[Rfam]
RNA: Bacterial RNase P class A
Organism: Sinobacterium caligoides
RNA sequence: GGAGUCAGCCAGGCAGUCGCUGCCAAGUCGCUAGUCGAUUUGGGGGAGGAAAGUCCGGGCUCUAUAGGGCAGGGUGCCAGGUAACACCUGGGGGGCGUAAGCCCACGACCAGUGCAGCAGAGAGUAGACCGCCUAAGUCCAUUCGUGGAACGGUAAGGGUGAAAGGGUGCGGUAAGAGCGCACCGCACAACUGGUAACAGUUUGUGGCAUGGUAAACUCCACCCGGAGCAAGACCAAAUAGGCUUCCUGAGGUACGGCCCGUACUGGAAGCGGGUAGGUUGCUUGAGCCUGUGAGCGAUUGCAGGCCUAGAGGAAUGACUGUCCAAGACAAAACCCGGCUUAUCGGCUGGCUCCACCU
Number, nucleotide and partner (000 for none) at each position: 001g354002g353003a352004g351005u350006c349007a348008g347009c346010c345011a343012g323013g322014c321015a320016g319017u318018c317019g000020c046021u045022g000023c043024c042025a041026a040027g039028u038029c000030g000031c000032u000033a000034g000035u000036c000037g000038a028039u027040u026041u025042g024043g023044g000045g021046g020047a000048g000049g000050a000051a341052a340053g339054u000055c338056c337057g336058g335059g334060c228061u227062c226063u225064a000065u000066a000067g260068g259069g258070c257071a000072g224073g223074g222075u221076g220077c091078c090079a089080g088081g087082u000083a000084a000085c000086a000087c081088c080089u079090g078091g077092g106093g104094g103095g102096c101097g000098u000099a000100a000101g096102c095103c094104c093105a000106c092107g219108a218109c000110c000111a000112g217113u216114g213115c212116a000117g000118c000119a000120g000121a000122g000123a000124g000125u000126a000127g000128a000129c158130c157131g154132c153133c152134u000135a000136a000137g000138u149139c148140c147141a146142u000143u000144c000145g000146u141147g140148g139149a138150a000151c000152g133153g132154u131155a000156a000157g130158g129159g000160u000161g000162a000163a000164a000165g000166g184167g183168u182169g181170c180171g179172g000173u000174a000175a000176g000177a000178g000179c171180g170181c169182a168183c167184c166185g208186c206187a205188c204189a203190a202191c200192u199193g198194g000195u000196a000197a000198c193199a192200g191201u000202u190203u189204g188205u187206g186207g000208c185209a000210u000211g000212g115213u114214a000215a000216a113217c112218u108219c107220c076221a075222c074223c073224c072225g063226g062227a061228g060229c000230a000231a000232g280233a279234c278235c277236a000237a000238a000239u000240a000241g000242g271243c270244u269245u268246c267247c266248u000249g000250a000251g265252g264253u263254a262255c261256g000257g070258c069259c068260c067261g255262u254263a253264c252265u251266g247267g246268a245269a244270g243271c242272g000273g000274g000275u000276a000277g235278g234279u233280u232281g000282c000283u000284u000285g000286a000287g306288c305289c304290u303291g302292u301293g300294a299295g000296c000297g000298a000299u294300u293301g292302c291303a290304g289305g288306c287307c000308u000309a000310g000311a000312g000313g000314a000315a000316u000317g018318a017319c016320u015321g014322u013323c012324c000325a000326a000327g000328a000329c000330a000331a000332a000333a000334c059335c058336c057337g056338g055339c053340u052341u051342a000343u011344c000345g010346g009347c008348u007349g006350g005351c004352u003353c002354c001355a000356c000357c000358u000